[Rfam]
RNA: Eukaryotic large subunit ribosomal RNA, nucleotides 877 to 1187
Organism: Strongylocentrotus purpuratus
RNA sequence: GAGUCUAACGGGCCCGCGAGUCAAGGGGCGACUGAAACCCCACGGCGCAAUGAAGGUGAAGGUCGAUUCGGUCGAUCGAGGUGGGAUCCUCUCCCUCGGGGGAGGCGCACCACCGCCCCGCCAUAUCCGCUCCGUUCGGUGUGGCGGAGGCAGAGCGGGCACGCUAGGACCCGAAAGAUGGUGAACUAUGCCCGAGCAGGAUGAAGCCAGAGGAAACUCUGGUGGAGGUCCGCAGCGAUUCUGACGUGCAAAUCGAUCGUCCGACUUGGGUAUAGGGGCGAAAGACUAAUCGAACCAUCUAGUAGCUGGUU
Numbered sequence: 001g002a003g004u005c006u007a008a009c010g011g012g013c014c015c016g017c018g019a020g021u022c023a024a025g026g027g028g029c030g031a032c033u034g035a036a037a038c039c040c041c042a043c044g045g046c047g048c049a050a051u052g053a054a055g056g057u058g059a060a061g062g063u064c065g066a067u068u069c070g071g072u073c074g075a076u077c078g079a080g081g082u083g084g085g086a087u088c089c090u091c092u093c094c095c096u097c098g099g100g101g102g103a104g105g106c107g108c109a110c111c112a113c114c115g116c117c118c119c120g121c122c123a124u125a126u127c128c129g130c131u132c133c134g135u136u137c138g139g140u141g142u143g144g145c146g147g148a149g150g151c152a153g154a155g156c157g158g159g160c161a162c163g164c165u166a167g168g169a170c171c172c173g174a175a176a177g178a179u180g181g182u183g184a185a186c187u188a189u190g191c192c193c194g195a196g197c198a199g200g201a202u203g204a205a206g207c208c209a210g211a212g213g214a215a216a217c218u219c220u221g222g223u224g225g226a227g228g229u230c231c232g233c234a235g236c237g238a239u240u241c242u243g244a245c246g247u248g249c250a251a252a253u254c255g256a257u258c259g260u261c262c263g264a265c266u267u268g269g270g271u272a273u274a275g276g277g278g279c280g281a282a283a284g285a286c287u288a289a290u291c292g293a294a295c296c297a298u299c300u301a302g303u304a305g306c307u308g309g310u311u
Stems, first nucleotide, its partner, number of pairs: 005167003009163002012160006020046003025041004050057002080114005088105005116150002118147006127138001170309002173306001177299006186275011197263001199231004206223007235260004240256002243254002277287002